[Rfam]
RNA sequence: GGUUGGACGAUAUUUUAUCGUUUUCAAGUAACUUGGCUUCUAGGGUGGGAAGUC
Numbered sequence: 001g002g003u004u005g006g007a008c009g010a011u012a013u014u015u016u017a018u019c020g021u022u023u024u025c026a027a028g029u030a031a032c033u034u035g036g037c038u039u040c041u042a043g044g045g046u047g048g049g050a051a052g053u054c
Stems, first nucleotide, its partner, number of pairs: 003027003006022006035054007
RNA: Na+ riboswitch aptamer (DUF1646)